[Rfam]
RNA sequence: GGUCAUGAGCGCCAGCGUCAAGCCCCGGCUUGCUGGCCGGCAACCCUCCAACCGCGGUGGGGUGCCCCGGGUGAGGACCUGGCCGGUCGCGCAGGGCGACCCGGCAAGCGCGGGCC
Numbered sequence: 001g002g003u004c005a006u007g008a009g010c011g012c013c014a015g016c017g018u019c020a021a022g023c024c025c026c027g028g029c030u031u032g033c034u035g036g037c038c039g040g041c042a043a044c045c046c047u048c049c050a051a052c053c054g055c056g057g058u059g060g061g062g063u064g065c066c067c068c069g070g071g072u073g074a075g076g077a078c079c080u081g082g083c084c085g086g087u088c089g090c091g092c093a094g095g096g097c098g099a100c101c102c103g104g105c106a107a108g109c110g111c112g113g114g115c116c
Stems, first nucleotide, its partner, number of pairs: 001079004009038001011037006021030002039066003044062003048057002082105004086100005
A member of the RNA family "SAM (S-adenosyl methionine) riboswitch aptamer" from Saccharopolyspora erythraea, 116 nucleotides long.
The family's consensus secondary structure is taken from published work.
The sequence is in the family's curated seed alignment.
Rfam links the family to the GO terms regulation of gene expression and S-adenosylmethionine metabolic process.
About the family: SAM-IV is a mRNA element that regulates gene expression via direct sensing of S-adenosylmethionine (SAM or AdoMet).